[Rfam]
The record is a 133-nucleotide RNA from Castor canadensis, which matches "Small nucleolar RNA SNORA3/SNORA45 family" in Rfam. About the family: The members of this family belong to the H/ACA class of snoRNAs which are thought to guide the sites of modification of uridines to pseudouridines. Clan: SNORA3 clan. NCBI's taxonomy places the organism under Eukaryota, Eumetazoa, Deuterostomia, Glires, Castor. It scores 72 bits against the family's covariance model.

Nucleotides: 133
Stems, first nucleotide, its partner, number of pairs: 002058001006054001007052003012047002015045006023037004070124001072122004077117001081115003085111002090108003
Number, partner (000 for none) and nucleotide at each position: 001000g002058c003000c004000a005000a006054g007052a008051u009050u010000a011000g012047a013046g014000u015045c016044a017043c018042a019041u020040c021000c022000u023037g024036a025035u026034a027000c028000a029000g030000c031000a032000c033000u034026u035025g036024u037023c038000c039000u040020g041019g042018u043017g044016u045015g046013c047012u048000g049000g050009a051008g052007u053000u054006c055000g056000c057000a058002g059000a060000g061000a062000g063000a064000a065000u066000u067000u068000g069000g070124u071000g072122g073121u074120c075119u076000u077117g078000a079000u080000u081115u082114a083113c084000a085111g086110g087000u088000a089000a090108a091107g092106g093000a094000a095000g096000a097000g098000u099000c100000c101000g102000u103000g104000c105000c106092c107091c108090u109000g110086u111085u112000a113083g114082u115081g116000a117077u118000c119075a120074g121073a122072u123000a124070a125000a126000a127000a128000a129000c130000a131000u132000g133000c